Rfam assigns this 207-nucleotide RNA from Alteribacillus iranensis to the family "T-box leader". Rfam describes the family as follows. Uncharged tRNA acts as the effector for transcription antitermination of genes in the T-box leader family. The source organism's lineage runs through Bacteria, Bacillati, Bacillota, Bacillaceae and Alteribacillus. A search with the family's covariance model found it, with a score of 95 bits.
RNA sequence: GGUAAAACAGUGAUAGGAAAAGUAUGUUGGGGCCCUCUGUACAGAGACUGUUUCCAAAGCUGAGAGGAAACGGCGGAGAAGUUCAACAGAAAGCUAGCCUGGAGUGCGGGUGAAAACCGCCGUCUACCUGCGUUAAAGGGAUAAGUUGACAAGCAGUUAAGCCUGCUUGUAAACAGGGUGGUACCGCGAGUGAACCUCGUCCCUGAC
Numbered sequence: 001g002g003u004a005a006a007a008c009a010g011u012g013a014u015a016g017g018a019a020a021a022g023u024a025u026g027u028u029g030g031g032g033c034c035c036u037c038u039g040u041a042c043a044g045a046g047a048c049u050g051u052u053u054c055c056a057a058a059g060c061u062g063a064g065a066g067g068a069a070a071c072g073g074c075g076g077a078g079a080a081g082u083u084c085a086a087c088a089g090a091a092a093g094c095u096a097g098c099c100u101g102g103a104g105u106g107c108g109g110g111u112g113a114a115a116a117c118c119g120c121c122g123u124c125u126a127c128c129u130g131c132g133u134u135a136a137a138g139g140g141a142u143a144a145g146u147u148g149a150c151a152a153g154c155a156g157u158u159a160a161g162c163c164u165g166c167u168u169g170u171a172a173a174c175a176g177g178g179u180g181g182u183a184c185c186g187c188g189a190g191u192g193a194a195c196c197u198c199g200u201c202c203c204u205g206a207c
Stems, first nucleotide, its partner, number of pairs: 007105002015100003025088006037076003048073006107119003121132003149170007175204004186200005
Dot-bracket structure: ......((......(((.......((((((......(((........((((((..............)))))))))......)))))).........)))...)).(((.......))).(((......)))................(((((((........)))))))....((((.......(((((.....)))))))))...